[Rfam]
RNA sequence: UAUCUUAAAUCGCUGAGUCUUUUAAAGAGCGGGGGAACCACUUUUGUGACAAUGUCACUUGGGGUGAAUCCUUAACAAGGUAGGGCUACUCUUUUGGCCCGAAUCCGACAGCUAACCUCGUAAGCGUUAAGAGAGAAGGU
Dot-bracket structure: ..........((((...(((.....)))((((((....((...................))(((.....((((...))))..((((..........))))...))).........)))))).))))..............

The record is a 140-nucleotide RNA from Bacillus sp. FJAT-27986, which matches "c-di-AMP riboswitch aptamer (ydaO/yuaA leader)" in Rfam.
The base pairs follow the family's consensus structure.
The organism belongs to Bacillus, within Bacteria.